About this RNA
Shown here is an 83-nucleotide RNA sequence from Homo sapiens, a member of the family "mir-1299 microRNA precursor family". Pairs were carried over by alignment from the consensus structure, which was predicted with RNAalifold. Its family is annotated with miRNA-mediated post-transcriptional gene silencing and RISC complex in the Gene Ontology. The match comes from Rfam's covariance-model search (90 bits).
[Rfam]
RNA sequence: CCUCGUAGCAGUGUUCCGGAAUCCUAUGUGAGGGACAAAUAUUUAGACCCUCGUAGCAGUAUUCUGGAAUCCUAUGUGAUGGA
Number, nucleotide and partner (000 for none) at each position: 001c081002c000003u079004c078005g077006u076007a075008g000009c000010a073011g072012u000013g070014u069015u068016c067017c066018g065019g064020a063021a062022u061023c000024c059025u058026a000027u056028g054029u053030g052031a000032g050033g049034g048035a000036c000037a000038a000039a000040u000041a000042u000043u000044u000045a000046g000047a000048c034049c033050c032051u000052c030053g029054u028055a000056g027057c000058a025059g024060u000061a022062u021063u020064c019065u018066g017067g016068a015069a014070u013071c000072c011073u010074a000075u007076g006077u005078g004079a003080u000081g001082g000083a000